[Rfam]
RNA: RAGATH-18 RNA
RNA sequence: CCUAUAGAGAGUACAAGAACUUGUGAGUAGUAUCUGUUUGGACAGUACAAAAGCAUACUCGUUGAAGUAGGAA
Numbered sequence: 001c002c003u004a005u006a007g008a009g010a011g012u013a014c015a016a017g018a019a020c021u022u023g024u025g026a027g028u029a030g031u032a033u034c035u036g037u038u039u040g041g042a043c044a045g046u047a048c049a050a051a052a053g054c055a056u057a058c059u060c061g062u063u064g065a066a067g068u069a070g071g072a073a
Base pairs, nucleotide, nucleotide: 001071002070003069004068005067009060010059011058012057013056022055023054024053030048031047032046035044036043